Overview: The record is a 45-nucleotide sequence from Oceanospirillum linum, which matches "abiF RNA" in Rfam. The family's RNA type in Rfam is small RNA. Rfam's curators write: Actinobacteria, Bacteroidetes, Clostridia, Proteobacteria, one Clostridia phage. The family's consensus secondary structure is taken from published work. A search with the family's covariance model found it, with a score of 38 bits.
[Rfam]
RNA sequence: CCCGCCACGCUUCUUGUCAGAAAUGACUAGCGCAAAUAGGCGGGU
Number, nucleotide and partner (000 for none) at each position: 001c044002c043003c042004g041005c040006c039007a000008c032009g031010c030011u000012u000013c000014u000015u000016g000017u000018c000019a000020g000021a000022a000023a000024u000025g000026a000027c000028u000029a000030g010031c009032g008033c000034a000035a000036a000037u000038a000039g006040g005041c004042g003043g002044g001045u000